A member of the RNA family "Small nucleolar RNA SNORD59" from Chrysemys picta, 74 nucleotides long.
Nucleotides: 074
Stems, first nucleotide, its partner, number of pairs: 001074003005070001
Number, partner (000 for none) and nucleotide at each position: 001074c002073c003072u004000u005070c006000a007000c008000u009000g010000a011000u012000g013000a014000u015000c016000c017000a018000g019000c020000g021000u022000g023000a024000u025000g026000a027000c028000u029000u030000u031000c032000g033000u034000u035000c036000u037000u038000c039000u040000g041000a042000g043000c044000g045000u046000g047000c048000u049000g050000a051000a052000g053000c054000c055000a056000g057000g058000u059000c060000u061000u062000u063000g064000a065000u066000c067000u068000g069000a070005g071000g072003a073002g074001g

Annotation: On this family, see Galardi et al., Mol Cell Biol 2002: "Purified box C/D snoRNPs are able to reproduce site-specific 2'-O-methylation of target RNA in vitro". Its family is annotated with RNA processing and nucleolus in the Gene Ontology. A search with the family's covariance model found it, with a score of 74 bits.